Background: This 78-nucleotide RNA from Sorghum bicolor belongs to the Rfam family "Plastid-rpl20 3UTR RNA". Taxonomically the source falls in Sorghum (Eukaryota, Liliopsida, Poales, Andropogonodae).
RNA sequence: UCCGGUUCCCGGAGAGGGGACUCCAGAAGGAUGCAUAAAUUAAGAUUAAGUGGUAAGAAUCAAUGAUCAUGUUACAAU
Numbered sequence: 001u002c003c004g005g006u007u008c009c010c011g012g013a014g015a016g017g018g019g020a021c022u023c024c025a026g027a028a029g030g031a032u033g034c035a036u037a038a039a040u041u042a043a044g045a046u047u048a049a050g051u052g053g054u055a056a057g058a059a060u061c062a063a064u065g066a067u068c069a070u071g072u073u074a075c076a077a078u
Stems, first nucleotide, its partner, number of pairs: 006029002009026001011024004062073003
Dot-bracket structure: .....((.(.((((......)))).).))................................(((......))).....
Plastid rpl20 is a non-coding RNA (ncRNA) recognised in plastids. It was found in the three prime untranslated region (3UTR) of rpl20 gene, it presence in the 3UTR region sugest a role in transcript maduration. It is annotated as a cis-regulatory element.